[Rfam]
RNA sequence: AUGGCUAUGAUGAUUUGCACAGGGGUAUGAGACCCAGCUGUAUAUGAGGGCUGAGUGUAAAUGCUUUAUCUUGGUUUAGCCAAGCAUGUGGCAGGCUAACUGAGAAAGUAUUUGCAUACAAUUGCAAUGAUCUGAGCCAG
Numbered sequence: 001a002u003g004g005c006u007a008u009g010a011u012g013a014u015u016u017g018c019a020c021a022g023g024g025g026u027a028u029g030a031g032a033c034c035c036a037g038c039u040g041u042a043u044a045u046g047a048g049g050g051c052u053g054a055g056u057g058u059a060a061a062u063g064c065u066u067u068a069u070c071u072u073g074g075u076u077u078a079g080c081c082a083a084g085c086a087u088g089u090g091g092c093a094g095g096c097u098a099a100c101u102g103a104g105a106a107a108g109u110a111u112u113u114g115c116a117u118a119c120a121a122u123u124g125c126a127a128u129g130a131u132c133u134g135a136g137c138c139a140g
Stems, first nucleotide, its partner, number of pairs: 002139004